Background
Shown here is a 62-nucleotide RNA sequence from Pelagibacterales bacterium SAG-MED43, a member of the family "pntA sRNA". A search with the family's covariance model found it, with a score of 75 bits. The literature on the family includes a 2009 paper in BMC Genomics by Meyer et al., "Identification of candidate structured RNAs in the marine organism 'Candidatus Pelagibacter ubique'". The base pairs follow the family's consensus structure, which is taken from published work. By type it is a small RNA.
[Rfam]
RNA sequence: UUUUAUGGAUGAUGAAAGCCAUAAAAACACCUGGAAUACUUUUACUAAAUUUGUUUUAUGGG
Numbered sequence: 001u002u003u004u005a006u007g008g009a010u011g012a013u014g015a016a017a018g019c020c021a022u023a024a025a026a027a028c029a030c031c032u033g034g035a036a037u038a039c040u041u042u043u044a045c046u047a048a049a050u051u052u053g054u055u056u057u058a059u060g061g062g
Stems, first nucleotide, its partner, number of pairs: 001026008030062004034057002036054003